[Rfam]
RNA sequence: CAGUCUCGUCGCGACUGGCGUUGAGGUGGGUGACCACCAGGGAGCGAUGAGACUGUUCGACACCGGGACCGUUCGCCUGGGCCCCGCGU
Numbered sequence: 001c002a003g004u005c006u007c008g009u010c011g012c013g014a015c016u017g018g019c020g021u022u023g024a025g026g027u028g029g030g031u032g033a034c035c036a037c038c039a040g041g042g043a044g045c046g047a048u049g050a051g052a053c054u055g056u057u058c059g060a061c062a063c064c065g066g067g068a069c070c071g072u073u074c075g076c077c078u079g080g081g082c083c084c085c086g087c088g089u
Stems, first nucleotide, its partner, number of pairs: 003053010015041002017077004026037004066084002069081002
This 89-nucleotide sequence from Aeromicrobium sp. PE09-221 belongs to the Rfam family "ZMP/ZTP riboswitch aptamer (pfl RNA motif)". It scores 59 bits against the family's covariance model. The base pairs follow the family's consensus structure, which is taken from published work. NCBI's taxonomy places the organism under Bacteria, Actinomycetota, Actinomycetes, Propionibacteriales, Aeromicrobium.